[Rfam]
RNA sequence: AAGUGUUUCAGCUCUUUUAGAAUUUGUCCAGAAACCAGGUUUUCCGGUUUCUACCAUAGGAAAAAUA
Numbered sequence: 001a002a003g004u005g006u007u008u009c010a011g012c013u014c015u016u017u018u019a020g021a022a023u024u025u026g027u028c029c030a031g032a033a034a035c036c037a038g039g040u041u042u043u044c045c046g047g048u049u050u051c052u053a054c055c056a057u058a059g060g061a062a063a064a065a066u067a
Stems, first nucleotide, its partner, number of pairs: 040067001041063005046055003
RNA: U7 small nuclear RNA